The family of this 60-nucleotide RNA sequence from Bacillus aquiflavi is "Ribosomal protein L13 leader". The family's RNA type in Rfam is cis-regulatory leader.

[Rfam]
RNA sequence: GGUAUUGUUUUAACCCACGAUAAGCCCCGGAAACUUAUUCGUGUUUAAAUAAAACCAGAA
Numbered sequence: 001g002g003u004a005u006u007g008u009u010u011u012a013a014c015c016c017a018c019g020a021u022a023a024g025c026c027c028c029g030g031a032a033a034c035u036u037a038u039u040c041g042u043g044u045u046u047a048a049a050u051a052a053a054a055c056c057a058g059a060a
Base pairs, nucleotide, nucleotide: 006057007056008054009053010052011051012050016043017042018041019039020038021037022036023035024034
NCBI's taxonomy places the organism under Bacteria, Bacillati, Caryophanales, Bacillaceae, Bacillus. Rfam's curators write: This family is a putative r-protein leader autoregulatory structure found in B. subtilis and other low-GC Gram-positive bacteria. It is located in the 5' untranslated regions of mRNAs encoding the L13-S9 (rplM-rpsI) ribosomal protein operon.